mir-9193 microRNA precursor family: a 74-nucleotide RNA from Pipistrellus kuhlii.
Rfam links the family to the GO terms RISC complex and miRNA-mediated post-transcriptional gene silencing.

RNA sequence: CUCGGGGGGGGGGGGGUGCUUAGCCCAGAUUGUGAGAGAGCACAGGCCAGGCCGAGGGACCCCACCGGUGCAUG
Numbered sequence: 001c002u003c004g005g006g007g008g009g010g011g012g013g014g015g016g017u018g019c020u021u022a023g024c025c026c027a028g029a030u031u032g033u034g035a036g037a038g039a040g041c042a043c044a045g046g047c048c049a050g051g052c053c054g055a056g057g058g059a060c061c062c063c064a065c066c067g068g069u070g071c072a073u074g
Base pairs, nucleotide, nucleotide: 004071006069009066010065012063013062014061015060017058019056020055021054023052024051025050028047030045031044032043033042034041

The source organism's lineage runs through Eukaryota, Opisthokonta, Eumetazoa, Eutheria and Pipistrellus.